[Rfam]
RNA sequence: AUGCGAUGAGCCGAGUAGUGACUUUGUCACUUUCGACGCUAGGGAGGUCUUCAUUUAAUUGAAACGCAGGAGCGGACCUUGAAUAGUUGUGUGAACCUUCUAUUCUCAUCGGAAACGAUGCCCUGGCCCACCUUUAUGGUGGGCCUUUUU
Number, nucleotide and partner (000 for none) at each position: 001a000002u000003g000004c000005g000006a000007u000008g000009a000010g000011c000012c035013g034014a033015g032016u000017a000018g030019u029020g028021a027022c026023u000024u000025u000026g022027u021028c020029a019030c018031u000032u015033u014034c013035g012036a000037c000038g000039c000040u000041a124042g123043g122044g121045a079046g078047g077048u076049c000050u000051u000052c000053a000054u000055u000056u000057a000058a000059u000060u000061g000062a000063a000064a000065c074066g073067c072068a000069g000070g000071a000072g067073c066074g065075g000076a048077c047078c046079u045080u000081g105082a104083a103084u102085a101086g100087u000088u000089g000090u000091g000092u000093g000094a000095a000096c000097c000098u000099u000100c086101u085102a084103u083104u082105c081106u000107c120108a119109u118110c117111g000112g000113a000114a000115a000116c000117g110118a109119u108120g107121c044122c043123c042124u041125g145126g144127c143128c142129c141130a140131c139132c138133u000134u000135u000136a000137u000138g132139g131140u130141g129142g128143g127144c126145c125146u000147u000148u000149u000150u000
Shown here is a 150-nucleotide sequence from Streptococcus suis, a member of the family "MarS sRNA". For this family Rfam cites "A genome-wide analysis of small regulatory RNAs in the human pathogen group A Streptococcus" (Perez et al., PLoS One, 2009). Interacts with the 5'UTR of the mga transcript (the multiple virulence gene regulator gene) and was renamed MarS for mag-activating regulatory sRNA. In MarS deletion strains expression of mga and several Mga-activated genes is reduced. This down-regulation of virulence factors leads to increased susceptibility of the deletion strain to phagocytosis, reduced adherence to human keratinocytes. Gene Ontology terms of the family: positive regulation of translation, ncRNA-mediated and mRNA 5'-UTR binding. Rfam's curators put it in the seed alignment.